[Rfam]
RNA sequence: CAGUUAUUAAGAAAGGCAGAGGGAUUAGACCCGUUGAAGCCUUAGCAACCCUUUAUUCAUAAAGAAGGUGCUACAUUCUACCAAAAUAUUUU
Numbered sequence: 001c002a003g004u005u006a007u008u009a010a011g012a013a014a015g016g017c018a019g020a021g022g023g024a025u026u027a028g029a030c031c032c033g034u035u036g037a038a039g040c041c042u043u044a045g046c047a048a049c050c051c052u053u054u055a056u057u058c059a060u061a062a063a064g065a066a067g068g069u070g071c072u073a074c075a076u077u078c079u080a081c082c083a084a085a086a087u088a089u090u091u092u
Stems, first nucleotide, its partner, number of pairs: 002091002005088004013043005021032003027079003044072004049068002051064004076084001

Shown here is a 92-nucleotide sequence, a member of the family "SAM riboswitch aptamer (S box leader)".